[Rfam]
RNA sequence: UUCGUAUUACCUUUAAAUACAGGGCCUUUUUGAAGACCCGAUGAAAAAUUUUUGGCAGCCCUACUUGUGUAGUAGGGCUU
Number, nucleotide and partner (000 for none) at each position: 001u000002u000003c000004g000005u000006a000007u000008u000009a000010c000011c000012u000013u000014u000015a000016a000017a000018u000019a000020c000021a000022g039023g038024g037025c000026c035027u034028u033029u000030u000031u000032g000033a028034a027035g026036a000037c024038c023039c022040g000041a000042u000043g000044a000045a000046a000047a000048a000049u000050u000051u000052u000053u000054g000055g000056c000057a079058g078059c077060c076061c075062u074063a073064c072065u071066u000067g000068u000069g000070u000071a065072g064073u063074a062075g061076g060077g059078c058079u057080u000